[Rfam]
RNA sequence: GGAACCCGAGCGGGAGAGCCUCCAGCGUCCGUGGAGCGCCGAAGGAGCAAGCACCCCGCACACUCUCAGGCAACGAUACCCGCUCGGGUGUG
Numbered sequence: 001g002g003a004a005c006c007c008g009a010g011c012g013g014g015a016g017a018g019c020c021u022c023c024a025g026c027g028u029c030c031g032u033g034g035a036g037c038g039c040c041g042a043a044g045g046a047g048c049a050a051g052c053a054c055c056c057c058g059c060a061c062a063c064u065c066u067c068a069g070g071c072a073a074c075g076a077u078a079c080c081c082g083c084u085c086g087g088g089u090g091u092g
Stems, first nucleotide, its partner, number of pairs: 006087008020036004038071003041067002045065003051059002
A member of the RNA family "Glycine riboswitch aptamer" from Saccharothrix algeriensis, 92 nucleotides long. The literature on the family includes a 2017 paper in MBio by Babina et al., "In Vivo Behavior of the Tandem Glycine Riboswitch in Bacillus subtilis". Pairs were carried over by alignment from the consensus structure. Lineage of the source: Bacteria > Actinomycetota > Actinomycetes > Pseudonocardiaceae > Saccharothrix. Gene Ontology term of the family: glycine biosynthetic process. From the family's description: This family represents the bacterial glycine riboswitch.